[Rfam]
RNA sequence: AUAGCAGGGAUUGUGUGUAUCGACGUUGUGCAAAGUUCAGUGCGCUAUGUUCGAAAGAGUUUCCUGCAAAAUCGAUCUUGGGGAAGAUGGGCAGUUGUGCUUCAUUCUUUCGUUGAUUCCUCUCAACAAUCAUCUUACCCAUAUUC
Number, nucleotide and partner (000 for none) at each position: 001a000002u000003a000004g067005c066006a065007g064008g063009g062010a061011u000012u000013g000014u000015g045016u044017g043018u042019a041020u040021c000022g000023a000024c000025g000026u000027u000028g000029u000030g000031c000032a000033a000034a000035g000036u000037u000038c000039a000040g020041u019042g018043c017044g016045c015046u000047a000048u000049g000050u000051u000052c000053g000054a000055a000056a000057g000058a000059g000060u000061u010062u009063c008064c007065u006066g005067c004068a000069a000070a000071a000072u000073c000074g000075a000076u000077c000078u000079u000080g140081g139082g138083g000084a136085a135086g134087a133088u132089g131090g130091g000092c000093a000094g127095u126096u125097g124098u000099g000100c000101u000102u000103c000104a000105u000106u000107c000108u000109u000110u000111c000112g000113u000114u000115g000116a000117u000118u000119c000120c000121u000122c000123u000124c097125a096126a095127c094128a000129a000130u090131c089132a088133u087134c086135u085136u084137a000138c082139c081140c080141a000142u000143a000144u000145u000146c000